[Rfam]
RNA sequence: AAAGCAAGCCACUUUGUCGCUGCGAAUUUAUUUCGGAGAGGAAAGUCUGGACACCAUAGAGAAAGCAUAGCGGGUAACACCCGUCCAUCGUGAGAUGAGGACAAGUGCAACAGAAAGUAUGUACAGUUCGGCUGUAGUGAAACCAGGUAAACUCUAUGCGGUGAAAUGCCAUGUAUACCAACAGUUAAGGGCUUCUCGUUCGUUGUUGGGGGGUAGGCAGCUCGAGACUUGGAGUAAUUCAAGUCCUAGAUAAAUGACAAAGCAUUGCAUUUAUGUAAUGACAGAAUCCGGCUUAUCGGCUUGCUUUUUUU
Numbered sequence: 001a002a003a004g005c006a007a008g009c010c011a012c013u014u015u016g017u018c019g020c021u022g023c024g025a026a027u028u029u030a031u032u033u034c035g036g037a038g039a040g041g042a043a044a045g046u047c048u049g050g051a052c053a054c055c056a057u058a059g060a061g062a063a064a065g066c067a068u069a070g071c072g073g074g075u076a077a078c079a080c081c082c083g084u085c086c087a088u089c090g091u092g093a094g095a096u097g098a099g100g101a102c103a104a105g106u107g108c109a110a111c112a113g114a115a116a117g118u119a120u121g122u123a124c125a126g127u128u129c130g131g132c133u134g135u136a137g138u139g140a141a142a143c144c145a146g147g148u149a150a151a152c153u154c155u156a157u158g159c160g161g162u163g164a165a166a167u168g169c170c171a172u173g174u175a176u177a178c179c180a181a182c183a184g185u186u187a188a189g190g191g192c193u194u195c196u197c198g199u200u201c202g203u204u205g206u207u208g209g210g211g212g213g214u215a216g217g218c219a220g221c222u223c224g225a226g227a228c229u230u231g232g233a234g235u236a237a238u239u240c241a242a243g244u245c246c247u248a249g250a251u252a253a254a255u256g257a258c259a260a261a262g263c264a265u266u267g268c269a270u271u272u273a274u275g276u277a278a279u280g281a282c283a284g285a286a287u288c289c290g291g292c293u294u295a296u297c298g299g300c301u302u303g304c305u306u307u308u309u310u311u
Stems, first nucleotide, its partner, number of pairs: 001307010011296001012262007020038002023035004043294003047291005052163004061196001063194001065159005070084005085099001086097004100154002105152002107148002122136006167219004178209005189201004226245008
RNA: Bacterial RNase P class A
Organism: Faecalibacter rhinopitheci